[Rfam]
RNA: Small nucleolar RNA SNORA3/SNORA45 family
Organism: Meleagris gallopavo
RNA sequence: ACUGAGAAUAGAGUCACAUCUUUACAUGUUCUGUUGUUCUGGUGUGCUAUCGUUCUCAGACAUAAACUUCUGAUCCUCAUUCCCUGGCUGCGAUACCUCAUAUCUCAGUCAGCCACCAAAUCAGUGACAGUA
Numbered sequence: 001a002c003u004g005a006g007a008a009u010a011g012a013g014u015c016a017c018a019u020c021u022u023u024a025c026a027u028g029u030u031c032u033g034u035u036g037u038u039c040u041g042g043u044g045u046g047c048u049a050u051c052g053u054u055c056u057c058a059g060a061c062a063u064a065a066a067c068u069u070c071u072g073a074u075c076c077u078c079a080u081u082c083c084c085u086g087g088c089u090g091c092g093a094u095a096c097c098u099c100a101u102a103u104c105u106c107a108g109u110c111a112g113c114c115a116c117c118a119a120a121u122c123a124g125u126g127a128c129a130g131u132a
Stems, first nucleotide, its partner, number of pairs: 002059005007053001012048002015046006024037003070124005084112004089107002092104003